[Rfam]
RNA sequence: CACUUCUCAAUGAGCUCCUUCCUGCCAACAAAUCCAUGGCAGCCUAUGGAUUCGCAUGAGAAGAAUAUUAACUGUUCAGUACUGGCAAACUCGCAACAGGACUCUUUCUGUUGUGAUCAGCCGCUGCUGUUCAACAAGU
Numbered sequence: 001c002a003c004u005u006c007u008c009a010a011u012g013a014g015c016u017c018c019u020u021c022c023u024g025c026c027a028a029c030a031a032a033u034c035c036a037u038g039g040c041a042g043c044c045u046a047u048g049g050a051u052u053c054g055c056a057u058g059a060g061a062a063g064a065a066u067a068u069u070a071a072c073u074g075u076u077c078a079g080u081a082c083u084g085g086c087a088a089a090c091u092c093g094c095a096a097c098a099g100g101a102c103u104c105u106u107u108c109u110g111u112u113g114u115g116a117u118c119a120g121c122c123g124c125u126g127c128u129g130u131u132c133a134a135c136a137a138g139u
Base pairs, nucleotide, nucleotide: 003063004062005061006060007059008058014055015054016050017049018048022042023041024040025039026038074132077129078128079127094113095112096111097110098109099108
This 139-nucleotide sequence from Probosciger aterrimus belongs to the Rfam family "Small nucleolar RNA SNORA75". Rfam describes the family as follows. U23 belongs to the H/ACA class of snoRNAs. snoRNAs bind a number of proteins (including dyskerin, Gar1p and Nop10p in the case of the H/ACA class) to form snoRNP complexes. This class are thought to guide the sites of modification of uridines to pseudouridines by forming direct base pairing interactions with substrate RNAs. Targets include ribosomal and spliceosomal RNAs as well as the Trypanosoma spliced leader RNA (SL RNA) as possibly other, still unknown cellular RNAs. U23 can direct the pseudouridylation of U97 in human 18S rRNA (Bachellerie JP, Ganot, P unpublished data). U23 is encoded within intron 12 of the nucleolin gene in human, mouse, rat chicken, and Xenopus laevis. The family has 6 seed sequences and 414 matches in Rfam 15.1. Gene Ontology terms of the family: RNA processing and nucleolus. The base pairs follow the family's consensus structure, which was predicted with PFOLD.